[Rfam]
RNA sequence: CGAGUGAUUCAUGGCUAAGGAACUAGGCAAAUUAGACGCGUAACUUCGGGAGAAGCGUCGCCACCCAUUGGGUGGCCGCAGUGAAAAGGCCCAGGCGACUGUUUAGCAAAAACACAGGACUCUGCGAAAUCGAAAGAUGAAGUAUAGGGUCUGACACCUGCCCGGUGCCGGAAGGUUAAGGAAGGGGCUUAGGAUUUAUUUCCAAAGGUCUUGACUGAAGCCCCGGUAAACGGCGGCCGUAACUAUAACGGUCCUAAGGUAGCGAAAUUCCUUGUCGGGUAAGUUCCGACCUGCACGAAUGGUGUAACGAUCUGGGCACUGUCUCGGCCAUGAGCUCG
Numbered sequence: 001c002g003a004g005u006g007a008u009u010c011a012u013g014g015c016u017a018a019g020g021a022a023c024u025a026g027g028c029a030a031a032u033u034a035g036a037c038g039c040g041u042a043a044c045u046u047c048g049g050g051a052g053a054a055g056c057g058u059c060g061c062c063a064c065c066c067a068u069u070g071g072g073u074g075g076c077c078g079c080a081g082u083g084a085a086a087a088g089g090c091c092c093a094g095g096c097g098a099c100u101g102u103u104u105a106g107c108a109a110a111a112a113c114a115c116a117g118g119a120c121u122c123u124g125c126g127a128a129a130u131c132g133a134a135a136g137a138u139g140a141a142g143u144a145u146a147g148g149g150u151c152u153g154a155c156a157c158c159u160g161c162c163c164g165g166u167g168c169c170g171g172a173a174g175g176u177u178a179a180g181g182a183a184g185g186g187g188c189u190u191a192g193g194a195u196u197u198a199u200u201u202c203c204a205a206a207g208g209u210c211u212u213g214a215c216u217g218a219a220g221c222c223c224c225g226g227u228a229a230a231c232g233g234c235g236g237c238c239g240u241a242a243c244u245a246u247a248a249c250g251g252u253c254c255u256a257a258g259g260u261a262g263c264g265a266a267a268u269u270c271c272u273u274g275u276c277g278g279g280u281a282a283g284u285u286c287c288g289a290c291c292u293g294c295a296c297g298a299a300u301g302g303u304g305u306a307a308c309g310a311u312c313u314g315g316g317c318a319c320u321g322u323c324u325c326g327g328c329c330a331u332g333a334g335c336u337c338g
Base pairs, nucleotide, nucleotide: 001338002337003336004335009333010332011331012330013329014328015327016326018324019323020322035059036058037057038056039055044049060076061075062074063073064072065071066070077081089317090316091315092314093313094312095311096309097308100114101113102112117152118151119150120149121148122147123146124145125142129138130137131136155304156303157302158301160234161233162232165231166230167227168226169225170224171223174222175221176220180216181215184212185211186210187209188208189207192203193202235253236252237251238250239249240248254258264291274290275289276288277287278286279285
Rfam assigns this 338-nucleotide part of an RNA from Lewinellaceae bacterium SD302 to the family "Bacterial large subunit ribosomal RNA". The source organism's lineage runs through Bacteria, Pseudomonadati, Bacteroidota, Saprospiria and Lewinellaceae. A search with the family's covariance model found it, with a score of 2692 bits. The family's consensus secondary structure is taken from published work. Gene Ontology terms of the family: structural constituent of ribosome and ribosome. The literature on the family includes a 2002 paper in BMC Bioinformatics by Cannone et al., "The comparative RNA web (CRW) site: an online database of comparative sequence and structure information for ribosomal, intron, and other RNAs".